[Rfam]
Shown here is a 126-nucleotide RNA from Phascolarctos cinereus, a member of the family "U4atac minor spliceosomal RNA".
Its Rfam clan is "U4 clan".
The base pairs follow the family's consensus structure, which is taken from published work.
It is annotated as a spliceosomal small nuclear RNA.
On this family, see Lorkovic et al., RNA 2005: "Evolutionary conservation of minor U12-type spliceosome between plants and humans".
U4atac is an essential component of the minor U12-type spliceosome complex which is required for removal of the rarer class of eukaryotic introns (AT-AC, U12-type).
RNA sequence: ACCAUCCUUUUCUACAAGUUGCGUUACUGCCCAAUGAAUGUCUAGUGAGGACAGUACUGGUAACACCUACACAACACACACACAGCUCUUAAAGCUUUGCUUUAACAUGGUGCAAUUUGUGGAACC
Numbered sequence: 001a002c003c004a005u006c007c008u009u010u011u012c013u014a015c016a017a018g019u020u021g022c023g024u025u026a027c028u029g030c031c032c033a034a035u036g037a038a039u040g041u042c043u044a045g046u047g048a049g050g051a052c053a054g055u056a057c058u059g060g061u062a063a064c065a066c067c068u069a070c071a072c073a074a075c076a077c078a079c080a081c082a083c084a085g086c087u088c089u090u091a092a093a094g095c096u097u098u099g100c101u102u103u104a105a106c107a108u109g110g111u112g113c114a115a116u117u118u119g120u121g122g123a124a125c126c
Stems, first nucleotide, its partner, number of pairs: 007018003022059002026055004031050002038046002083112002086109001090104006